[Rfam]
RNA sequence: CUAUCCACCCCUGUCAGAGACCCUGUCCGCAGGCCCUGUCCGCCCCUAGACAGGGCCUGCGGACAGGGACUAUGACAGGGGUGGAUAGGGCC
Numbered sequence: 001c002u003a004u005c006c007a008c009c010c011c012u013g014u015c016a017g018a019g020a021c022c023c024u025g026u027c028c029g030c031a032g033g034c035c036c037u038g039u040c041c042g043c044c045c046c047u048a049g050a051c052a053g054g055g056c057c058u059g060c061g062g063a064c065a066g067g068g069a070c071u072a073u074g075a076c077a078g079g080g081g082u083g084g085a086u087a088g089g090g091c092c
Base pairs, nucleotide, nucleotide: 010079011078012077013076014075015074016073018071019070021068022067023066024065025064026063027062028061029060030059031058032057033056034055035054036053037052038051039050040049